[Rfam]
Overview: A member of the RNA family "mir-3126 microRNA precursor family" from Gorilla gorilla, 74 nucleotides long. The family's consensus secondary structure was predicted with RNAalifold. Its family is annotated with RISC complex and miRNA-mediated post-transcriptional gene silencing in the Gene Ontology. The sequence is in the family's curated seed alignment.
RNA sequence: AUGAUUAUAUGAGGGACAGAUGCCAGAAGCAUUGGUUAUGAUUUGCAUCUGGCAUCCGUCACACAGAUAAUUAU
Numbered sequence: 001a002u003g004a005u006u007a008u009a010u011g012a013g014g015g016a017c018a019g020a021u022g023c024c025a026g027a028a029g030c031a032u033u034g035g036u037u038a039u040g041a042u043u044u045g046c047a048u049c050u051g052g053c054a055u056c057c058g059u060c061a062c063a064c065a066g067a068u069a070a071u072u073a074u
Stems, first nucleotide, its partner, number of pairs: 001074008010065002015060003019056009029046003